The record is a 104-nucleotide RNA sequence from Ictidomys tridecemlineatus, which matches "Small nucleolar RNA SNORD124" in Rfam. Rfam 15.1 lists 191 matches to the family in 183 species. Its family is annotated with RNA processing and nucleolus in the Gene Ontology. The source organism's lineage runs through Eukaryota, Euteleostomi, Mammalia, Marmotini and Ictidomys. For this family Rfam cites "snoSeeker: an advanced computational package for screening of guide and orphan snoRNA genes in the human genome" (Yang et al., Nucleic Acids Res, 2006). It is one of the family's seed sequences.

RNA sequence: GGAUUCCAAGGAAGGGAUGAUGUUCUAAUUGAGACUCAAGAAAAGGAUUCUGAGCCUCAGAGCUUUGAAGGAACCAUGUGGUCCCUGACCUUCCUUAAGACAAA
Numbered sequence: 001g002g003a004u005u006c007c008a009a010g011g012a013a014g015g016g017a018u019g020a021u022g023u024u025c026u027a028a029u030u031g032a033g034a035c036u037c038a039a040g041a042a043a044a045g046g047a048u049u050c051u052g053a054g055c056c057u058c059a060g061a062g063c064u065u066u067g068a069a070g071g072a073a074c075c076a077u078g079u080g081g082u083c084c085c086u087g088a089c090c091u092u093c094c095u096u097a098a099g100a101c102a103a104a
Base pairs, nucleotide, nucleotide: 009095010094011093012092013091014090015089